[Rfam]
RNA sequence: UUUUGGACAAGGUGCUCCAUUUCGUGGAUUUUGUCCAAAAGAGCAUCUUGUCUAUAGAG
Numbered sequence: 001u002u003u004u005g006g007a008c009a010a011g012g013u014g015c016u017c018c019a020u021u022u023c024g025u026g027g028a029u030u031u032u033g034u035c036c037a038a039a040a041g042a043g044c045a046u047c048u049u050g051u052c053u054a055u056a057g058a059g
Base pairs, nucleotide, nucleotide: 002056004054005053006052007051008050009049010048011047012046018041020039021038022037024035026034